Shown here is an 85-nucleotide RNA sequence from Allopseudospirillum japonicum, a member of the family "t44 RNA". The source organism's lineage runs through Bacteria, Pseudomonadota, Oceanospirillales, Oceanospirillaceae and Allopseudospirillum. This family consists of a number of bacterial RNA genes of between 135 and 170 bases in length. By type it is a small RNA.
RNA sequence: AGCGUUUUCCCAAAAAGUCACACAUAUACCGACACAUGAUUCGGGGUGCCCUCGGGUUGGAUCAUGGGGUAUAUGGAGGCCUAAC
Numbered sequence: 001a002g003c004g005u006u007u008u009c010c011c012a013a014a015a016a017g018u019c020a021c022a023c024a025u026a027u028a029c030c031g032a033c034a035c036a037u038g039a040u041u042c043g044g045g046g047u048g049c050c051c052u053c054g055g056g057u058u059g060g061a062u063c064a065u066g067g068g069g070u071a072u073a074u075g076g077a078g079g080c081c082u083a084a085c
Base pairs, nucleotide, nucleotide: 023075024074025073026072027071028070029069030068035066036065037064038063039062040061041060042059043058048057049056050055